[Rfam]
RNA sequence: CAUCUGUCUCAAAGAUGGAAAAGAGUGUUUGCACAGAAGUCAGCAGAACUCAUCAAAAGAACUUUAAACUAGAUUUGAAGGGG
Numbered sequence: 001c002a003u004c005u006g007u008c009u010c011a012a013a014g015a016u017g018g019a020a021a022a023g024a025g026u027g028u029u030u031g032c033a034c035a036g037a038a039g040u041c042a043g044c045a046g047a048a049c050u051c052a053u054c055a056a057a058a059g060a061a062c063u064u065u066a067a068a069c070u071a072g073a074u075u076u077g078a079a080g081g082g083g
Stems, first nucleotide, its partner, number of pairs: 001027002004023002007020001009018003040047002049083003058076003062072002
Group II catalytic intron D1-D4-1: an 83-nucleotide sequence. From the family's description: Group II introns are found in rRNA, tRNA and mRNA of organelles in fungi, plants and protists, and also in mRNA in bacteria. Rfam links the family to the GO term Group II intron splicing.